This 89-nucleotide RNA sequence from Juglans regia belongs to the Rfam family "mir-160 microRNA precursor family". The source organism's lineage runs through Eukaryota, Viridiplantae, Embryophyta, Euphyllophyta and Juglans. On this family, see Rhoades et al., Cell 2002: "Prediction of plant microRNA targets". Pairs were carried over by alignment from the consensus structure, which was predicted with PFOLD.
[Rfam]
RNA sequence: UUAUGCCUGGCUCCCUGUAUGCCACAAGCAUAAAACCGAUCCGUAUGCUGAUUGUCUAAUGCUGGUGGCGUGCGAGGAGCCAAGCAUAC
Numbered sequence: 001u002u003a004u005g006c007c008u009g010g011c012u013c014c015c016u017g018u019a020u021g022c023c024a025c026a027a028g029c030a031u032a033a034a035a036c037c038g039a040u041c042c043g044u045a046u047g048c049u050g051a052u053u054g055u056c057u058a059a060u061g062c063u064g065g066u067g068g069c070g071u072g073c074g075a076g077g078a079g080c081c082a083a084g085c086a087u088a089c
Stems, first nucleotide, its partner, number of pairs: 002088005008082007016074009027063003